[Rfam]
Rfam assigns this 80-nucleotide RNA sequence from Colocasia esculenta to the family "Small nucleolar RNA snoR8a". The family has 7 seed sequences and 956 matches in Rfam 15.1. Pairs were carried over by alignment from the consensus structure, which was predicted with WAR.
RNA sequence: ACUGGUGCUAUGAUUACAAGCAAAGUUUUUACUGCCAUAGCUGUGGCAGACUCAUAUACACCCAUAGAAUCUGAGCACCA
Numbered sequence: 001a002c003u004g005g006u007g008c009u010a011u012g013a014u015u016a017c018a019a020g021c022a023a024a025g026u027u028u029u030u031a032c033u034g035c036c037a038u039a040g041c042u043g044u045g046g047c048a049g050a051c052u053c054a055u056a057u058a059c060a061c062c063c064a065u066a067g068a069a070u071c072u073g074a075g076c077a078c079c080a
Stems, first nucleotide, its partner, number of pairs: 003080002006077002